[Rfam]
RNA sequence: GGAAUCUGAUUUCAAAUGGUGGCUUGGAGUGUUUCUGUAAAUUAUCUAGCACCAUUUGAAAUCAGUGUUCU
Numbered sequence: 001g002g003a004a005u006c007u008g009a010u011u012u013c014a015a016a017u018g019g020u021g022g023c024u025u026g027g028a029g030u031g032u033u034u035c036u037g038u039a040a041a042u043u044a045u046c047u048a049g050c051a052c053c054a055u056u057u058g059a060a061a062u063c064a065g066u067g068u069u070c071u
Stems, first nucleotide, its partner, number of pairs: 001071004006065009016055006025048004
RNA: mir-29 microRNA precursor family
Organism: Pangasianodon hypophthalmus